A member of the RNA family "U1 spliceosomal RNA", 165 nucleotides long. Its Rfam clan is "U1 clan". The family's consensus secondary structure is taken from published work. Rfam classes the family as a spliceosomal small nuclear RNA. It is one of the family's seed sequences. For this family Rfam cites "The uRNA database" (Zwieb, Nucleic Acids Res, 1997).
RNA sequence: AAACUAACCUGGCUGGGGGGCAUCUCGCGAUCAUGAAGGCGGGACCUCCAUGGUGAGGUCUGGUCAUUGCACUUCCGACCAGGCUGACCUGUGUGGCAGUCCCGAGUUGGGAUUGGCCAACAGCAUAAUUUUUGCGUUUGGGGACAGCGUUCGCGCUUCCCCGCC
Numbered sequence: 001a002a003a004c005u006a007a008c009c010u011g012g013c014u015g016g017g018g019g020g021c022a023u024c025u026c027g028c029g030a031u032c033a034u035g036a037a038g039g040c041g042g043g044a045c046c047u048c049c050a051u052g053g054u055g056a057g058g059u060c061u062g063g064u065c066a067u068u069g070c071a072c073u074u075c076c077g078a079c080c081a082g083g084c085u086g087a088c089c090u091g092u093g094u095g096g097c098a099g100u101c102c103c104g105a106g107u108u109g110g111g112a113u114u115g116g117c118c119a120a121c122a123g124c125a126u127a128a129u130u131u132u133u134g135c136g137u138u139u140g141g142g143g144a145c146a147g148c149g150u151u152c153g154c155g156c157u158u159c160c161c162c163g164c165c
Stems, first nucleotide, its partner, number of pairs: 012124004016049005024043005050092004055088001057085003061081005094119003099114001101110002139163004146157004